[Rfam]
The record is a 92-nucleotide RNA from Streptococcus himalayensis, which matches "Cia-dependent small RNA csRNA1" in Rfam.
RNA sequence: AUCAAAUGAAAACCUCCUAAUUUUAUUUGAUAACAUCCUAAAUUUUUCAUAAUAAUCUCCGAACAAAAGCUGGGCACAUGUCUGGCUUUUGU
Numbered sequence: 001a002u003c004a005a006a007u008g009a010a011a012a013c014c015u016c017c018u019a020a021u022u023u024u025a026u027u028u029g030a031u032a033a034c035a036u037c038c039u040a041a042a043u044u045u046u047u048c049a050u051a052a053u054a055a056u057c058u059c060c061g062a063a064c065a066a067a068a069g070c071u072g073g074g075c076a077c078a079u080g081u082c083u084g085g086c087u088u089u090u091g092u
Stems, first nucleotide, its partner, number of pairs: 001031011066089009